[Rfam]
RNA: Small nucleolar RNA SNORA3/SNORA45 family
RNA sequence: CCUGAGACUAGAGUCACAUCCCAACAGCUUUUGUCCUGGUGUGCUAGAGUACUCGGAUAGAACCUGCUGGUAUUGAUUCACUGGCGAGGGCAGUUGGUGCCUCCGUGAGUGCCCAGAUCAGAAACAUGC
Numbered sequence: 001c002c003u004g005a006g007a008c009u010a011g012a013g014u015c016a017c018a019u020c021c022c023a024a025c026a027g028c029u030u031u032u033g034u035c036c037u038g039g040u041g042u043g044c045u046a047g048a049g050u051a052c053u054c055g056g057a058u059a060g061a062a063c064c065u066g067c068u069g070g071u072a073u074u075g076a077u078u079c080a081c082u083g084g085c086g087a088g089g090g091c092a093g094u095u096g097g098u099g100c101c102u103c104c105g106u107g108a109g110u111g112c113c114c115a116g117a118u119c120a121g122a123a124a125c126a127u128g129c
Base pairs, nucleotide, nucleotide: 002056003055004054005053006052007050008049009048012045013044015043016042017041018040019039020038024034025033026032067121068120069119070118071117073115075113079111080110081109082108084106086104088102089101090100091099